The record is a 100-nucleotide RNA from Halococcus hamelinensis, which matches "L4-Archaeoglobi ribosomal protein leades" in Rfam. Rfam's curators put it in the seed alignment.

RNA sequence: CUGAUGGGCGCGUUCGGGUCAAUUGCGGACUGCAACACCCGGUCUCGCUCGUCGUGCCUCCCGGAGUGGAGGUCGGCGAGGGGGAACGCGUGACCGUCAG
Dot-bracket structure: (((((..((((((.((((....(((((...)))))..)))).((((.((((((.....................)))))).))))))))))....)))))